[Rfam]
RNA sequence: AUGUGCCUGGCUCCCUGUAUGCCACUCAUCUAGAGCAACAACACCAAUCCUAAUGUUGCCUACGAUGGAUGGCGUGCACGAAGCCAAGCAUCU
Numbered sequence: 001a002u003g004u005g006c007c008u009g010g011c012u013c014c015c016u017g018u019a020u021g022c023c024a025c026u027c028a029u030c031u032a033g034a035g036c037a038a039c040a041a042c043a044c045c046a047a048u049c050c051u052a053a054u055g056u057u058g059c060c061u062a063c064g065a066u067g068g069a070u071g072g073c074g075u076g077c078a079c080g081a082a083g084c085c086a087a088g089c090a091u092c093u
Stems, first nucleotide, its partner, number of pairs: 001093001003091004008086005014080001016078009027067003